The record is a 120-nucleotide sequence from Metabacillus lacus, which matches "SAM riboswitch aptamer (S box leader)" in Rfam. The source organism's lineage runs through Bacteria, Bacillati, Bacillota, Bacilli and Metabacillus.

[Rfam]
RNA sequence: CUCUUAUCGAGAGCGGCGGAGGGACUGGCCCGAAGAAGCCCGGCAACCAUCCAUAUUCUUAGAAUAUGAAUAGGUGCUAAAUCCUGCAAUAUACGAGGUUUGUAUUUUGAAAGAUAAGAG
Numbered sequence: 001c002u003c004u005u006a007u008c009g010a011g012a013g014c015g016g017c018g019g020a021g022g023g024a025c026u027g028g029c030c031c032g033a034a035g036a037a038g039c040c041c042g043g044c045a046a047c048c049a050u051c052c053a054u055a056u057u058c059u060u061a062g063a064a065u066a067u068g069a070a071u072a073g074g075u076g077c078u079a080a081a082u083c084c085u086g087c088a089a090u091a092u093a094c095g096a097g098g099u100u101u102g103u104a105u106u107u108u109g110a111a112a113g114a115u116a117a118g119a120g
Base pairs, nucleotide, nucleotide: 001120002119003118004117005116006115007114008113013041015040016039017038021031022030023029025086027084028083042078043077044076045075047074048073050069051068082112087109088108089107091105092104093103094102095101
Dot-bracket structure: ((((((((....(.(((...(((.[.[[)))......))))((((.((.((................))...))))))...(]].](((.(((((.....))))).)))..)))))))))